[Rfam]
RNA: tRNA
RNA sequence: UCCGGGGUAACUCAGUGGCAGAGUGUCCGCCUGUUAAGCGGAAUGCCGAAGGUUCGAUUCCUUCCCCCGGAG
Numbered sequence: 001u002c003c004g005g006g007g008u009a010a011c012u013c014a015g016u017g018g019c020a021g022a023g024u025g026u027c028c029g030c031c032u033g034u035u036a037a038g039c040g041g042a043a044u045g046c047c048g049a050a051g052g053u054u055c056g057a058u059u060c061c062u063u064c065c066c067c068c069g070g071a072g
Base pairs, nucleotide, nucleotide: 001071002070003069004068005067006066007065010024011023012022013021026042027041028040029039030038048064049063050062051061052060